[Rfam]
This 172-nucleotide sequence from Psychrobacillus glaciei belongs to the Rfam family "Group II catalytic intron D1-D4-3". On this family, see Lehmann and Schmidt, Crit Rev Biochem Mol Biol 2003: "Group II introns: structure and catalytic versatility of large natural ribozymes". Group II introns are found in rRNA, tRNA and mRNA of organelles in fungi, plants and protists, and also in mRNA in bacteria. It scores 137 bits against the family's covariance model.
RNA sequence: CUUAUCGCGAGGUAAGGGCUGAAGGAAGCGUGUAUCAAAAUCUUGGCUCAACGAACAGAAAUCUGAUACCAAGGCUUUAUAGGUGGAUAAGGCUCCUAAACAAGUCAAAGUCCAAAAGAUGUGCGUAACCCUAUAAAGUAAAUCAGGUGAGUAAAAGAGGAAAGAUAGUUGU
Numbered sequence: 001c002u003u004a005u006c007g008c009g010a011g012g013u014a015a016g017g018g019c020u021g022a023a024g025g026a027a028g029c030g031u032g033u034a035u036c037a038a039a040a041u042c043u044u045g046g047c048u049c050a051a052c053g054a055a056c057a058g059a060a061a062u063c064u065g066a067u068a069c070c071a072a073g074g075c076u077u078u079a080u081a082g083g084u085g086g087a088u089a090a091g092g093c094u095c096c097u098a099a100a101c102a103a104g105u106c107a108a109a110g111u112c113c114a115a116a117a118g119a120u121g122u123g124c125g126u127a128a129c130c131c132u133a134u135a136a137a138g139u140a141a142a143u144c145a146g147g148u149g150a151g152u153a154a155a156a157g158a159g160g161a162a163a164g165a166u167a168g169u170u171g172u
Stems, first nucleotide, its partner, number of pairs: 001016006028172003035165002041158004046152005062147006074139003078135006085113004091106004